[Rfam]
RNA sequence: CUCGAUAAUGGCAAACCUGAUGAAAGUCAGGGACGCAAAGCUAAAGGGGCUUCCUGUAUUUAGUAUACAGAUGCCAGCCAGCUACCGAAA
Numbered sequence: 001c002u003c004g005a006u007a008a009u010g011g012c013a014a015a016c017c018u019g020a021u022g023a024a025a026g027u028c029a030g031g032g033a034c035g036c037a038a039a040g041c042u043a044a045a046g047g048g049g050c051u052u053c054c055u056g057u058a059u060u061u062a063g064u065a066u067a068c069a070g071a072u073g074c075c076a077g078c079c080a081g082c083u084a085c086c087g088a089a090a
Stems, first nucleotide, its partner, number of pairs: 003087002011036002016031006034077001039083004046079002048075003

This 90-nucleotide RNA sequence from Paenisporosarcina cavernae belongs to the Rfam family "c-di-GMP-I-GGC riboswitch aptamer". Pairs were carried over by alignment from the consensus structure, which is taken from published work. A reference for the family is Weinberg et al. (2017), "Bioinformatic analysis of riboswitch structures uncovers variant classes with altered ligand specificity", Proc Natl Acad Sci U S A. It scores 65 bits against the family's covariance model.